[Rfam]
c-di-AMP riboswitch aptamer (ydaO/yuaA leader): a 172-nucleotide RNA from Crystallibacter crystallopoietes. For this family Rfam cites "New RNA motifs suggest an expanded scope for riboswitches in bacterial genetic control" (Barrick et al., Proc Natl Acad Sci U S A, 2004). From the family's description: This family represents a conserved RNA structure found upstream of the ydaO and yuaA genes in Bacillus subtilis and related genes in other bacteria. Pairs were carried over by alignment from the consensus structure. Rfam links the family to the GO terms regulation of gene expression and cyclic-di-AMP binding. A search with the family's covariance model found it, with a score of 57 bits. NCBI's taxonomy places the organism under Bacteria, Bacillati, Actinomycetes, Micrococcaceae, Crystallibacter.
RNA sequence: GUCAAUUCAAUUCUUCCCAGACAGGGGCGGAGGAACCACACACGGCGCUUGGGGGCGCCUUGGGGUGAAGUUCUGUCAGCACAUCGAAGGCACAUUGUUUGCCGCUGACCGAACCGAGUGAACUCUCUCUCGAAUCCGACAGCUAACUUCGCAGGCGCAUAUGAGAGGACCU
Numbered sequence: 001g002u003c004a005a006u007u008c009a010a011u012u013c014u015u016c017c018c019a020g021a022c023a024g025g026g027g028c029g030g031a032g033g034a035a036c037c038a039c040a041c042a043c044g045g046c047g048c049u050u051g052g053g054g055g056c057g058c059c060u061u062g063g064g065g066u067g068a069a070g071u072u073c074u075g076u077c078a079g080c081a082c083a084u085c086g087a088a089g090g091c092a093c094a095u096u097g098u099u100u101g102c103c104g105c106u107g108a109c110c111g112a113a114c115c116g117a118g119u120g121a122a123c124u125c126u127c128u129c130u131c132g133a134a135u136c137c138g139a140c141a142g143c144u145a146a147c148u149u150c151g152c153a154g155g156c157g158c159a160u161a162u163g164a165g166a167g168g169a170c171c172u
Base pairs, nucleotide, nucleotide: 001156002155003154007026008025027152028151029150030149031148032147037062038061063137064136065135071113072112073111116131117130118129